This 293-nucleotide sequence from Sinosuthora webbiana belongs to the Rfam family "Metazoan signal recognition particle RNA". Rfam describes the family as follows. The signal recognition particle (SRP) is a universally conserved ribonucleoprotein.
RNA sequence: GCCGGGCACGGUGGCUUGUGCCUGUAAUCCAAGCUCCGGGGAGGCUGAGGCCGGCGGAUCGCUGAGCCCGGGGGUUCUGGGCUGCCGGGGGCUGUGCCGAGCGGGCGUCCGCGCUAAGGCCGGCAUCGAUAUGGUGACCCCGGGGGAGCCGGGGGCCACCAGGUCGCCUAAGGAGGGGUGAACCGGCCCAGGUCGGAGACGGAGCAGGUCAAAGCUCCCGUGGCGGUCAGUAGCGGGAUCGCGCCUGUGAACAGAGCCUGCAGCGCAGCCCGGGUGACAGGCUGGACGCUCAC
Numbered sequence: 001g002c003c004g005g006g007c008a009c010g011g012u013g014g015c016u017u018g019u020g021c022c023u024g025u026a027a028u029c030c031a032a033g034c035u036c037c038g039g040g041g042a043g044g045c046u047g048a049g050g051c052c053g054g055c056g057g058a059u060c061g062c063u064g065a066g067c068c069c070g071g072g073g074g075u076u077c078u079g080g081g082c083u084g085c086c087g088g089g090g091g092c093u094g095u096g097c098c099g100a101g102c103g104g105g106c107g108u109c110c111g112c113g114c115u116a117a118g119g120c121c122g123g124c125a126u127c128g129a130u131a132u133g134g135u136g137a138c139c140c141c142g143g144g145g146g147a148g149c150c151g152g153g154g155g156c157c158a159c160c161a162g163g164u165c166g167c168c169u170a171a172g173g174a175g176g177g178g179u180g181a182a183c184c185g186g187c188c189c190a191g192g193u194c195g196g197a198g199a200c201g202g203a204g205c206a207g208g209u210c211a212a213a214g215c216u217c218c219c220g221u222g223g224c225g226g227u228c229a230g231u232a233g234c235g236g237g238a239u240c241g242c243g244c245c246u247g248u249g250a251a252c253a254g255a256g257c258c259u260g261c262a263g264c265g266c267a268g269c270c271c272g273g274g275u276g277a278c279a280g281g282c283u284g285g286a287c288g289c290u291c292a293c
Stems, first nucleotide, its partner, number of pairs: 001045003004023008028042003050293001053290004059285002061282003066275007077268003081264005087258002092254004097249001101248008109237002112235005118228005124222003127166004132161005138155004143150002167173002175218005185210004193202003
Dot-bracket structure: (((((((((((....))))))))....(((.........))))))....(..((((..(((((..(((((((....(((.(((((.((...((((.(...((((((((((.(((((.(((((.(((((((.(((((.((((.((....)).)))).))))).))))((...)).(((((.....((((....(((....)))....))))...))))).))).)))))..)))))))...))))))))).))))..)).))))).))))))))))....))).)).))))..)
By type it is a non-coding RNA gene. The literature on the family includes a 2000 paper in Science by Batey et al., "Crystal structure of the ribonucleoprotein core of the signal recognition particle". Gene Ontology terms of the family: signal recognition particle, endoplasmic reticulum targeting and SRP-dependent cotranslational protein targeting to membrane, signal sequence recognition. Taxonomically the source falls in Sinosuthora (Eukaryota, Dipnotetrapodomorpha, Dinosauria, Theropoda). Pairs were carried over by alignment from the consensus structure, which is taken from published work.